This 125-nucleotide sequence from Brassica cretica belongs to the Rfam family "MIR9563 microRNA precursor family".

RNA sequence: GGAAUAUGAGAACCCGUUUCUUAACUUUUAACUAAAAAAACUAAGAACUGAUUAUUAAAUAAGAGUUUUAAGAGCCGAUUCUUAGCUUUUGUAGUUAAAAAUUAAGAGAUGGAUUCUUAUAUUCC
Numbered sequence: 001g002g003a004a005u006a007u008g009a010g011a012a013c014c015c016g017u018u019u020c021u022u023a024a025c026u027u028u029u030a031a032c033u034a035a036a037a038a039a040a041c042u043a044a045g046a047a048c049u050g051a052u053u054a055u056u057a058a059a060u061a062a063g064a065g066u067u068u069u070a071a072g073a074g075c076c077g078a079u080u081c082u083u084a085g086c087u088u089u090u091g092u093a094g095u096u097a098a099a100a101a102u103u104a105a106g107a108g109a110u111g112g113a114u115u116c117u118u119a120u121a122u123u124c125c
Stems, first nucleotide, its partner, number of pairs: 001125012014112011026100009036090004041085007
It scores 122 bits against the family's covariance model.